The family of this 98-nucleotide sequence from Sodalis endosymbiont of Henestaris halophilus is "t44 RNA". About the family: This family consists of a number of bacterial RNA genes of between 135 and 170 bases in length. The t44 gene has been identified in several species of enteric bacteria but homologs have also been identified in Pseudomonas and Coxiella species. The t44 gene is found between the map and rpsB genes in all species in the full alignment apart from Shigella flexneri. The source organism's lineage runs through Bacteria, Pseudomonadati, Pseudomonadota, Bruguierivoracaceae and Sodalis. On this family, see Tjaden et al., Nucleic Acids Res 2002: "Transcriptome analysis of Escherichia coli using high-density oligonucleotide probe arrays".

[Rfam]
RNA sequence: AAUUUAAUUCUGUUAUUACACACACGUAUCGUCACAUGCAACGGGGUGCUUUAACCGUCAGGUAGGAGUUAGUCGUAUGGGAUACGUGGAAGCAUAAC
Dot-bracket structure: ......................((((((((....(((((.((.....(((((............)))))..)).))))).))))))))..........